[Rfam]
RNA sequence: CAAGUCCACUAGGGGUGUCUAUUUAGACUGAGAGAGGUAGAAAUCCUCAACUCUAUGAACCUGAACUGGGUGAUGCCAGCGUAGGGAAUGUGUGACAGAUACGAG
Numbered sequence: 001c002a003a004g005u006c007c008a009c010u011a012g013g014g015g016u017g018u019c020u021a022u023u024u025a026g027a028c029u030g031a032g033a034g035a036g037g038u039a040g041a042a043a044u045c046c047u048c049a050a051c052u053c054u055a056u057g058a059a060c061c062u063g064a065a066c067u068g069g070g071u072g073a074u075g076c077c078a079g080c081g082u083a084g085g086g087a088a089u090g091u092g093u094g095a096c097a098g099a100u101a102c103g104a105g
Base pairs, nucleotide, nucleotide: 007092008091009090011054012053013052014051017028018027019026020025035047036046037045060085061084062083063082066079067078068077069076
Source information
A member of the RNA family "TPP riboswitch aptamer (THI element)" from Bacillus thermotolerans, 105 nucleotides long. Gene Ontology term of the family: thiamine pyrophosphate binding. Pairs were carried over by alignment from the consensus structure, which is taken from published work. A search with the family's covariance model found it, with a score of 64 bits.